The family of this 147-nucleotide RNA sequence from Salvator merianae is "U12 minor spliceosomal RNA". NCBI's taxonomy places the organism under Eukaryota, Euteleostomi, Sauria, Teiidae, Salvator. The family is grouped with related families in Rfam's "U2 clan". A search with the family's covariance model found it, with a score of 94 bits.
RNA sequence: AUGCCUUAAACUAAAGAGUAAGGAAAAUAAUGAUCCGGGCUGAUGCCUAGUUCCUCACUGUAAAUGUGAGAGGAAUUUUUGAAGUACUGAUCAUCCUUACGGCGAUUCUCCUACUUAGUGUAAUGCCUAGGCGUUUUGGUCUGACUA
Numbered sequence: 001a002u003g004c005c006u007u008a009a010a011c012u013a014a015a016g017a018g019u020a021a022g023g024a025a026a027a028u029a030a031u032g033a034u035c036c037g038g039g040c041u042g043a044u045g046c047c048u049a050g051u052u053c054c055u056c057a058c059u060g061u062a063a064a065u066g067u068g069a070g071a072g073g074a075a076u077u078u079u080u081g082a083a084g085u086a087c088u089g090a091u092c093a094u095c096c097u098u099a100c101g102g103c104g105a106u107u108c109u110c111c112u113a114c115u116u117a118g119u120g121u122a123a124u125g126c127c128u129a130g131g132c133g134u135u136u137u138g139g140u141c142u143g144a145c146u147a
Stems, first nucleotide, its partner, number of pairs: 004023005032053002035050001037048003054070005084145002089141005097131002101127004106122001108120001110118001